DUF3800-VII RNA: an 89-nucleotide RNA sequence.
[Rfam]
RNA sequence: GUUAGGUAUGCGCGGGAUAAACCUUAGGUCGUUCGUAAGAGCGGCAGCCCCAAGUGGGUGGGAUCCUAAGGCCCGGAACCUACUUUUUU
Numbered sequence: 001g002u003u004a005g006g007u008a009u010g011c012g013c014g015g016g017a018u019a020a021a022c023c024u025u026a027g028g029u030c031g032u033u034c035g036u037a038a039g040a041g042c043g044g045c046a047g048c049c050c051c052a053a054g055u056g057g058g059u060g061g062g063a064u065c066c067u068a069a070g071g072c073c074c075g076g077a078a079c080c081u082a083c084u085u086u087u088u089u
Stems, first nucleotide, its partner, number of pairs: 001084001003082005011076001013075004022071006028045007048058003

Overview
Rfam's curators put it in the seed alignment. It is annotated as a small RNA.